The record is a 67-nucleotide RNA from Bombyx mori, which matches "mir-2774 microRNA precursor family" in Rfam. Pairs were carried over by alignment from the consensus structure, which was predicted with RNAalifold. On this family, see Liu et al., BMC Genomics 2010: "MicroRNAs of Bombyx mori identified by Solexa sequencing". NCBI's taxonomy places the organism under Eukaryota, Opisthokonta, Ecdysozoa, Dicondylia, Bombyx. The match comes from Rfam's covariance-model search (60 bits). Its family is annotated with miRNA-mediated post-transcriptional gene silencing and RISC complex in the Gene Ontology.

[Rfam]
RNA sequence: UCGACCCACUGUGCGUCGGUCUGUCGAGUAAUAUCACCCGCUCGGUGGAAGAUCUUCCCUUUGUCGU
Numbered sequence: 001u002c003g004a005c006c007c008a009c010u011g012u013g014c015g016u017c018g019g020u021c022u023g024u025c026g027a028g029u030a031a032u033a034u035c036a037c038c039c040g041c042u043c044g045g046u047g048g049a050a051g052a053u054c055u056u057c058c059c060u061u062u063g064u065c066g067u
Stems, first nucleotide, its partner, number of pairs: 004064002011057001015053003020049010